[Rfam]
Rfam assigns this 67-nucleotide sequence from Oryzias javanicus to the family "mir-24 microRNA precursor family". The family's consensus secondary structure was predicted with RNAalifold. From the family's description: This family represents the microRNA (miRNA) mir-24 family. miRNAs are transcribed as ~70nt precursors (modelled here) and subsequently processed by the Dicer enzyme to give a ~22nt product. The literature on the family includes a 2001 paper in Cell by Ambros, "microRNAs: tiny regulators with great potential". Gene Ontology terms of the family: miRNA-mediated post-transcriptional gene silencing and RISC complex.
RNA sequence: ACCUCUUGGGCCUUCUGAGCUGACAGCAGUGUCAUCAAACACUGGCUCAGCUCAGCAGGAGCAGGAG
Number, nucleotide and partner (000 for none) at each position: 001a000002c000003c067004u066005c065006u064007u000008g062009g000010g000011c059012c058013u057014u000015c055016u054017g053018a052019g051020c050021u049022g048023a047024c000025a000026g000027c044028a043029g042030u041031g000032u000033c000034a000035u000036c000037a000038a000039a000040c000041a030042c029043u028044g027045g000046c000047u023048c022049a021050g020051c019052u018053c017054a016055g015056c000057a013058g012059g011060a000061g000062c008063a000064g006065g005066a004067g003